[Rfam]
RNA sequence: ACAUUUGUUUAGGCGAACCCGAGGCGUCGGGCUGAGAGUGGGACACGUUCCGUCCCUAAAGUCUUCGAACCUGAUGCGGUUAGCACCGUCGAAGGGAAAACGGGAUUCGUCGCC
Numbered sequence: 001a002c003a004u005u006u007g008u009u010u011a012g013g014c015g016a017a018c019c020c021g022a023g024g025c026g027u028c029g030g031g032c033u034g035a036g037a038g039u040g041g042g043a044c045a046c047g048u049u050c051c052g053u054c055c056c057u058a059a060a061g062u063c064u065u066c067g068a069a070c071c072u073g074a075u076g077c078g079g080u081u082a083g084c085a086c087c088g089u090c091g092a093a094g095g096g097a098a099a100a101c102g103g104g105a106u107u108c109g110u111c112g113c114c
Stems, first nucleotide, its partner, number of pairs: 006102005011064004018031004040056004070095003076089004
RNA: TPP riboswitch aptamer (THI element)
Organism: Opitutaceae bacterium